[Rfam]
Nucleotides: 184
Stems, first nucleotide, its partner, number of pairs: 040157002043154002052095001053087005060080002118134001120132002123129001162179002167174002
Number, partner (000 for none) and nucleotide at each position: 001000c002000u003000u004000u005000u006000u007000u008000u009000g010000u011000u012000a013000u014000a015000a016000u017000a018000a019000a020000u021000u022000g023000u024000g025000u026000a027000g028000a029000g030000u031000u032000u033000a034000u035000g036000a037000a038000c039000g040157g041156u042000a043154g044153c045000c046000u047000g048000a049000u050000u051000g052095g053087a054086g055085g056084u057083g058000g059000u060080g061079c062000u063000u064000a065000u066000g067000a068000u069000u070000a071000u072000u073000u074000c075000g076000u077000g078000g079061g080060c081000a082000a083057u084056g085055c086054c087053u088000c089000a090000c091000a092000a093000a094000a095052c096000a097000u098000g099000a100000a101000a102000g103000g104000c105000g106000a107000a108000g109000a110000u111000u112000u113000u114000u115000u116000g117000a118134c119000u120132g121131u122000a123129u124000u125000u126000c127000a128000g129123g130000c131121a132120u133000u134118g135000a136000g137000u138000c139000u140000c141000a142000u143000g144000a145000u146000u147000g148000c149000a150000u151000u152000u153044g154043c155000g156041a157040c158000c159000u160000u161000g162179a163178u164000g165000a166000u167174u168173c169000u170000u171000g172000u173168g174167a175000u176000a177000a178163a179162u180000a181000c182000g183000a184000g